Description:
Small nucleolar RNA snoR111: a 128-nucleotide RNA sequence from Musa acuminata. Pairs were carried over by alignment from the consensus structure, which was predicted with WAR. It is annotated as an H/ACA-box small nucleolar RNA.

RNA sequence: GCGAAGAGGGAACGCGUCUCCUUCGGUAGCGUGCUCCUCGAUCAGAAGGCAGAGGCAGAAAGACGAGUCGAGAUAUCGUUUCAGUCGCCACUCCACCCGUUGGCGGUUCGAUUGUUGCUCGACCACAC
Numbered sequence: 001g002c003g004a005a006g007a008g009g010g011a012a013c014g015c016g017u018c019u020c021c022u023u024c025g026g027u028a029g030c031g032u033g034c035u036c037c038u039c040g041a042u043c044a045g046a047a048g049g050c051a052g053a054g055g056c057a058g059a060a061a062g063a064c065g066a067g068u069c070g071a072g073a074u075a076u077c078g079u080u081u082c083a084g085u086c087g088c089c090a091c092u093c094c095a096c097c098c099g100u101u102g103g104c105g106g107u108u109c110g111a112u113u114g115u116u117g118c119u120c121g122a123c124c125a126c127a128c
Stems, first nucleotide, its partner, number of pairs: 006039005013031003067123001069121004075112004084107007093099001
Dot-bracket structure: .....(((((..(((.............)))...)))))...........................(.((((..((((.....(((((((..(.....).))))))).)))).....)))).).....
Taxonomically the source falls in Musa acuminata (Eukaryota, Tracheophyta, Euphyllophyta, Spermatophyta).